RNA sequence: ACCGACCAAUCGCUGAAUCCUUGAAUGGAAAAGGAACGGGGGAACCAACCGGAAGCCGCUUCGGCGUCUUCCACGGGGUGAAUCCUUUGGCGGCAAGAUGCCGAAGGUAGGGCGACUCUCACGCCCGAAUCCGACAGCUAACCUCGCAAGCGUAAACGAGAGAGGCC
Number, nucleotide and partner (000 for none) at each position: 001a000002c000003c000004g000005a000006c000007c000008a000009a000010u000011c152012g151013c150014u149015g000016a000017a000018u035019c034020c033021u032022u031023g000024a000025a000026u000027g000028g000029a000030a000031a022032a021033g020034g019035a018036a000037c146038g145039g144040g143041g142042g000043a000044a000045c000046c075047a000048a000049c000050c000051g000052g000053a000054a000055g000056c000057c000058g000059c000060u000061u000062c000063g000064g000065c000066g000067u000068c000069u000070u000071c000072c000073a000074c000075g046076g132077g131078g130079u000080g000081a000082a000083u000084c107085c106086u105087u104088u103089g102090g101091c100092g099093g000094c000095a000096a000097g000098a000099u092100g091101c090102c089103g088104a087105a086106g085107g084108u000109a000110g126111g125112g124113c123114g000115a000116c000117u000118c000119u000120c000121a000122c000123g113124c112125c111126c110127g000128a000129a000130u078131c077132c076133g000134a000135c000136a000137g000138c000139u000140a000141a000142c041143c040144u039145c038146g037147c000148a000149a014150g013151c012152g011153u000154a000155a000156a000157c000158g000159a000160g000161a000162g000163a000164g000165g000166c000167c000
Overview: A member of the RNA family "c-di-AMP riboswitch aptamer (ydaO/yuaA leader)" from Paenibacillus ginsengarvi, 167 nucleotides long. Taxonomically the source falls in Paenibacillus (Bacteria, Bacillati, Bacillota, Caryophanales).